RNA sequence: UAGGAUAACUGUAAAUAUGCGCGGUUAUCCCGAAUUUAUUGAUCGCAUAUUUUUUACUGGAGAGACAUCAUGGCACUGUCUGCAGAAACUAAAGCAGAAAUCGUAAAAGAAUACCAGCUGGCUGAA
Numbered sequence: 001u002a003g004g005a006u007a008a009c010u011g012u013a014a015a016u017a018u019g020c021g022c023g024g025u026u027a028u029c030c031c032g033a034a035u036u037u038a039u040u041g042a043u044c045g046c047a048u049a050u051u052u053u054u055u056a057c058u059g060g061a062g063a064g065a066c067a068u069c070a071u072g073g074c075a076c077u078g079u080c081u082g083c084a085g086a087a088a089c090u091a092a093a094g095c096a097g098a099a100a101u102c103g104u105a106a107a108a109g110a111a112u113a114c115c116a117g118c119u120g121g122c123u124g125a126a
Base pairs, nucleotide, nucleotide: 007026008025009024010023011022012021058078059077060076062074
RNA: Ribosomal S15 leader